[Rfam]
RNA sequence: AGCUCAUCCAGAGGGACUGAGGGAUACGGCCCGAAGACGUCCCGGCAACCGCCACGAGCCUCCGCCCCCGGCAAGACCAGCCGGUCGCGGUUCGUGGAAACGGUGCCAAUUCCGCCCGGCGCGACCGUCGCAGCCGGGGAAGAUGAGAA
Numbered sequence: 001a002g003c004u005c006a007u008c009c010a011g012a013g014g015g016a017c018u019g020a021g022g023g024a025u026a027c028g029g030c031c032c033g034a035a036g037a038c039g040u041c042c043c044g045g046c047a048a049c050c051g052c053c054a055c056g057a058g059c060c061u062c063c064g065c066c067c068c069c070g071g072c073a074a075g076a077c078c079a080g081c082c083g084g085u086c087g088c089g090g091u092u093c094g095u096g097g098a099a100a101c102g103g104u105g106c107c108a109a110u111u112c113c114g115c116c117c118g119g120c121g122c123g124a125c126c127g128u129c130g131c132a133g134c135c136g137g138g139g140a141a142g143a144u145g146a147g148a149a
Stems, first nucleotide, its partner, number of pairs: 003147006013043005021032003028113002044107004049103002053097001111141001115138006
This 149-nucleotide RNA sequence from Nocardioides soli belongs to the Rfam family "SAM riboswitch aptamer (S box leader)". The match comes from Rfam's covariance-model search (62 bits). Pairs were carried over by alignment from the consensus structure, which is taken from published work.